[Rfam]
RNA sequence: GCAUAGUGAUGAUGAACUUGAAAUUUCCCGAUGAUUUUCAUGACAGGAAUAACAACCUCCUACUCAUACUGA
Numbered sequence: 001g002c003a004u005a006g007u008g009a010u011g012a013u014g015a016a017c018u019u020g021a022a023a024u025u026u027c028c029c030g031a032u033g034a035u036u037u038u039c040a041u042g043a044c045a046g047g048a049a050u051a052a053c054a055a056c057c058u059c060c061u062a063c064u065c066a067u068a069c070u071g072a
Stems, first nucleotide, its partner, number of pairs: 006067004028047001

Small nucleolar RNA Z105: a 72-nucleotide sequence from Ricinus communis.
Gene Ontology terms of the family: nucleolus and RNA processing.
The organism belongs to Ricinus, within Eukaryota.
Rfam classes the family as a C/D-box small nucleolar RNA.
Pairs were carried over by alignment from the consensus structure, which was predicted with CMfinder.